RNA sequence: UUCUUCAAAGGGCAAACUCGUCGAAAGGCGGGGACGCAAAGCUGCAGGUCUAAAGCAGUAUAUGCUAUGACGGCUGGGUUGCAAGA
Dot-bracket structure: ...........((...((((((....))))))...))..((((.((((((....(((.....)))...)))..)))))))......

About this RNA: The record is an 86-nucleotide RNA from Melghiribacillus thermohalophilus, which matches "c-di-GMP-I riboswitch aptamer" in Rfam. The match comes from Rfam's covariance-model search (77 bits). Taxonomically the source falls in Melghiribacillus (Bacteria, Bacillati, Bacillota, Caryophanales).